[Rfam]
Iron response element I: a 35-nucleotide RNA from Rattus norvegicus.
The family's RNA type in Rfam is cis-regulatory element.
A search with the family's covariance model found it, with a score of 39 bits.
For this family Rfam cites "An atypical iron-responsive element (IRE) within crayfish ferritin mRNA and an iron regulatory protein 1 (IRP1)-like protein from crayfish hepatopancreas" (Huang et al., Insect Biochem Mol Biol, 1999).
RNA sequence: CUAUGUCUUGCUUCAACAGUGUUUGGACAAAACUG
Numbered sequence: 001c002u003a004u005g006u007c008u009u010g011c012u013u014c015a016a017c018a019g020u021g022u023u024u025g026g027a028c029a030a031a032a033c034u035g
Stems, first nucleotide, its partner, number of pairs: 001035001004032001006031001008029001010028001012027005017021001